A member of the RNA family "psaA RNA" from Cyanobium sp. CACIAM 14, 209 nucleotides long. It scores 126 bits against the family's covariance model.
[Rfam]
RNA sequence: CCUAUACUUCCGCCAGCGGUCCCCUUUCGGGGCCCAAAGCUCCAGUCGUGGCAAGGGUUUUCUCUCCCUGCCCGGCUGGUGCCCAUGGCCGGGUCAACCCGGUCAUGGGGCCCACCGAUGGAGCCUGGUCGUUCGCAAGAGCGACCCCGGCGUCCGUCGAAGGGGUGGACCUCCACCUCGACCCCGUCCCUCGAGGAACGUCUCGAUGA
Numbered sequence: 001c002c003u004a005u006a007c008u009u010c011c012g013c014c015a016g017c018g019g020u021c022c023c024c025u026u027u028c029g030g031g032g033c034c035c036a037a038a039g040c041u042c043c044a045g046u047c048g049u050g051g052c053a054a055g056g057g058u059u060u061u062c063u064c065u066c067c068c069u070g071c072c073c074g075g076c077u078g079g080u081g082c083c084c085a086u087g088g089c090c091g092g093g094u095c096a097a098c099c100c101g102g103u104c105a106u107g108g109g110g111c112c113c114a115c116c117g118a119u120g121g122a123g124c125c126u127g128g129u130c131g132u133u134c135g136c137a138a139g140a141g142c143g144a145c146c147c148c149g150g151c152g153u154c155c156g157u158c159g160a161a162g163g164g165g166u167g168g169a170c171c172u173c174c175a176c177c178u179c180g181a182c183c184c185c186g187u188c189c190c191u192c193g194a195g196g197a198a199c200g201u202c203u204c205g206a207u208g209a
Base pairs, nucleotide, nucleotide: 018170020168021165022164023163024162025161026160027159029116030115031112032111033110034109035108039082040081042079043078044077045076046075047074048073050072051071052070053069055067056066057064084107085106086105088103089102090101091100092099093098117158118157119156120155121154122153176196177195178194179193180192181191